[Rfam]
Shown here is a 40-nucleotide RNA sequence, a member of the family "Ocean-VII RNA". By type it is a small RNA. It is one of the family's seed sequences.
RNA sequence: UGAGUACCAGAGAUCAGAGGGAGGAACAAGCCUCUCAGAC
Numbered sequence: 001u002g003a004g005u006a007c008c009a010g011a012g013a014u015c016a017g018a019g020g021g022a023g024g025a026a027c028a029a030g031c032c033u034c035u036c037a038g039a040c
Stems, first nucleotide, its partner, number of pairs: 019036006
Dot-bracket structure: ..................((((((......))))))....